[Rfam]
RNA: c-di-AMP riboswitch aptamer (ydaO/yuaA leader)
Organism: Gordonia mangrovi
RNA sequence: GAUUGGUCACCGCUCAAUCGCCCUCUGGGCGAACCGGGGAACCAUCAGUUUCGGAGCGAUCCGAAUUGGGGUGAAUCGCGCAUGCCCGGCGACGUUGUGUGUCGUCGGUCCGCGCGUAGGGCCAGUCUUCCGGCCCGAAUCCGACAGCUAACCCGGUCGGCGGUCGAAGGGAGAGCAA
Numbered sequence: 001g002a003u004u005g006g007u008c009a010c011c012g013c014u015c016a017a018u019c020g021c022c023c024u025c026u027g028g029g030c031g032a033a034c035c036g037g038g039g040a041a042c043c044a045u046c047a048g049u050u051u052c053g054g055a056g057c058g059a060u061c062c063g064a065a066u067u068g069g070g071g072u073g074a075a076u077c078g079c080g081c082a083u084g085c086c087c088g089g090c091g092a093c094g095u096u097g098u099g100u101g102u103c104g105u106c107g108g109u110c111c112g113c114g115c116g117u118a119g120g121g122c123c124a125g126u127c128u129u130c131c132g133g134c135c136c137g138a139a140u141c142c143g144a145c146a147g148c149u150a151a152c153c154c155g156g157u158c159g160g161c162g163g164u165c166g167a168a169g170g171g172a173g174a175g176c177a178a
Stems, first nucleotide, its partner, number of pairs: 011162004018032003033157006043068002069142003077116004119136004